[Rfam]
RNA sequence: UUUUAGUGAGCCAAGCCAUAGCGGUUGAUCGUCAGACCGAUGUUUGCCAUAGGUGUUGAGCAGUGCAUGUGCUUC
Numbered sequence: 001u002u003u004u005a006g007u008g009a010g011c012c013a014a015g016c017c018a019u020a021g022c023g024g025u026u027g028a029u030c031g032u033c034a035g036a037c038c039g040a041u042g043u044u045u046g047c048c049a050u051a052g053g054u055g056u057u058g059a060g061c062a063g064u065g066c067a068u069g070u071g072c073u074u075c
Stems, first nucleotide, its partner, number of pairs: 014026004033069001038065002043060003048055002
About this RNA
The record is a 75-nucleotide RNA sequence from Pectobacterium atrosepticum, which matches "ASpks TB sRNA" in Rfam. It scores 54 bits against the family's covariance model. The family's consensus secondary structure is taken from published work. It is annotated as an antisense RNA.